Shown here is a 75-nucleotide RNA sequence from Oryctes borbonicus, a member of the family "mir-71 microRNA precursor family". The family's consensus secondary structure was predicted with RNAalifold. A search with the family's covariance model found it, with a score of 72 bits.
[Rfam]
RNA sequence: GCUUCGUGAAAGACAUGGGUAGUGAGAUGUUUAACCAUUAUUUUUUUGUCUCACUACCUUGUCUUUCAUGGAGAG
Numbered sequence: 001g002c003u004u005c006g007u008g009a010a011a012g013a014c015a016u017g018g019g020u021a022g023u024g025a026g027a028u029g030u031u032u033a034a035c036c037a038u039u040a041u042u043u044u045u046u047u048g049u050c051u052c053a054c055u056a057c058c059u060u061g062u063c064u065u066u067c068a069u070g071g072a073g074a075g
Base pairs, nucleotide, nucleotide: 008067009066010065011064012063013062014061015060017059018058019057021055022054023053024052025051026050027049028048029047